[Rfam]
RNA sequence: CUGACUGCGUGUACGGCUCUCCAUUUCCAAGUCGUGCACAGCUUUAAUAAGGAGGAAAACAGCACGCCCGGACUCGGGCUGCGGCAGUGUGGAGACCUGUCGCAUAAGCGGCGCAUUCCCCGCGAAUGGCCGUGAGGGCGUUCCUUGCGAAGGCAGAACGCUCAGAGUCGAGAAACAUGGCA
Numbered sequence: 001c002u003g004a005c006u007g008c009g010u011g012u013a014c015g016g017c018u019c020u021c022c023a024u025u026u027c028c029a030a031g032u033c034g035u036g037c038a039c040a041g042c043u044u045u046a047a048u049a050a051g052g053a054g055g056a057a058a059a060c061a062g063c064a065c066g067c068c069c070g071g072a073c074u075c076g077g078g079c080u081g082c083g084g085c086a087g088u089g090u091g092g093a094g095a096c097c098u099g100u101c102g103c104a105u106a107a108g109c110g111g112c113g114c115a116u117u118c119c120c121c122g123c124g125a126a127u128g129g130c131c132g133u134g135a136g137g138g139c140g141u142u143c144c145u146u147g148c149g150a151a152g153g154c155a156g157a158a159c160g161c162u163c164a165g166a167g168u169c170g171a172g173a174a175a176c177a178u179g180g181c182a
Stems, first nucleotide, its partner, number of pairs: 009039010066079004071169005080104008089096002108133005114128003136163008146155003
A member of the RNA family "malK-I RNA", 182 nucleotides long. Rfam's curators put it in the seed alignment. By type it is a cis-regulatory element. Pairs were carried over by alignment from the consensus structure, which is taken from published work.